Small nucleolar RNA SNORD126: a 77-nucleotide sequence from Monodelphis domestica.
[Rfam]
RNA sequence: UUUCUGCCAUGAUGAGCUGCAUGUUUUGUCCGUGUUUCACCUGAUUGCCCUGAUUAUACACAUGCCCUGAGCAGCCA
Numbered sequence: 001u002u003u004c005u006g007c008c009a010u011g012a013u014g015a016g017c018u019g020c021a022u023g024u025u026u027u028g029u030c031c032g033u034g035u036u037u038c039a040c041c042u043g044a045u046u047g048c049c050c051u052g053a054u055u056a057u058a059c060a061c062a063u064g065c066c067c068u069g070a071g072c073a074g075c076c077a
Base pairs, nucleotide, nucleotide: 001077004074005073006072007071
Overview: Lineage of the source: Eukaryota > Bilateria > Chordata > Metatheria > Monodelphis. The family's consensus secondary structure was predicted with WAR.